[Rfam]
RNA sequence: CUGACACGUGUGGGAGAGUCCGCGCCGAGGGCGCGGCGCCGAAGGGGCAAUUCCUCCCCGGAACCUCUCAGGCACCCGGACCACACGAUCGAG
Numbered sequence: 001c002u003g004a005c006a007c008g009u010g011u012g013g014g015a016g017a018g019u020c021c022g023c024g025c026c027g028a029g030g031g032c033g034c035g036g037c038g039c040c041g042a043a044g045g046g047g048c049a050a051u052u053c054c055u056c057c058c059c060g061g062a063a064c065c066u067c068u069c070a071g072g073c074a075c076c077c078g079g080a081c082c083a084c085a086c087g088a089u090c091g092a093g
Stems, first nucleotide, its partner, number of pairs: 007087007020036004038073003041069002045067003051061002
RNA: Glycine riboswitch aptamer